[Rfam]
RNA sequence: GCGCUGGCGGGGAGUUGUGCCGCUGUGUUCCCUUGCUGUGUCUUGAAGGAGAGCGACGACAAAGACACAGACAGCGC
Numbered sequence: 001g002c003g004c005u006g007g008c009g010g011g012g013a014g015u016u017g018u019g020c021c022g023c024u025g026u027g028u029u030c031c032c033u034u035g036c037u038g039u040g041u042c043u044u045g046a047a048g049g050a051g052a053g054c055g056a057c058g059a060c061a062a063a064g065a066c067a068c069a070g071a072c073a074g075c076g077c
Base pairs, nucleotide, nucleotide: 001077002076003075004074005073006072009032010031011030012029037069038068039067040066041065042064043063044062
Overview: Rfam assigns this 77-nucleotide RNA sequence from Leptolyngbya sp. Heron Island J to the family "CyVA-1 RNA". The source organism's lineage runs through Bacteria, Bacillati, Cyanophyceae, Leptolyngbyaceae and Leptolyngbya. Cyanobacteria, Acidobacteria (1 example), Verrucomicrobia (1 example). The base pairs follow the family's consensus structure, which is taken from published work.